[Rfam]
RNA sequence: UGAUGGCUGUUCCUCUCCCUGCCUGGAACCUUUGGCAGUGGAAUUUUGGUCCAUCAUAUAUCAAAGCUGGCUUAUCUUCACUCAGGGCACUAUGAGGAUAGGUUGGCUGUCCAUUAGUGCCUUCUGAUUUUUGCGGAGUCAAACAAUU
Numbered sequence: 001u002g003a004u005g006g007c008u009g010u011u012c013c014u015c016u017c018c019c020u021g022c023c024u025g026g027a028a029c030c031u032u033u034g035g036c037a038g039u040g041g042a043a044u045u046u047u048g049g050u051c052c053a054u055c056a057u058a059u060a061u062c063a064a065a066g067c068u069g070g071c072u073u074a075u076c077u078u079c080a081c082u083c084a085g086g087g088c089a090c091u092a093u094g095a096g097g098a099u100a101g102g103u104u105g106g107c108u109g110u111c112c113a114u115u116a117g118u119g120c121c122u123u124c125u126g127a128u129u130u131u132u133g134c135g136g137a138g139u140c141a142a143a144c145a146a147u148u
Stems, first nucleotide, its partner, number of pairs: 001056006008049001014043001016041002020037004069140005082127005087120005096112005
Rfam assigns this 148-nucleotide RNA sequence from Marmota marmota to the family "Small nucleolar RNA SNORA79". It scores 114 bits against the family's covariance model. Rfam 15.1 lists 944 matches to the family in 375 species. On this family, see Schattner et al., RNA 2006: "A computational screen for mammalian pseudouridylation guide H/ACA RNAs". By type it is an H/ACA-box small nucleolar RNA. Rfam's curators write: ACA65 (SNORA79) is a member of the H/ACA class of snoRNAs that guide the sites of modification of uridines to pseudouridines. This snoRNA was identified by computational screening and its expression in mouse experimentally verified by Northern blot and primer extension analysis.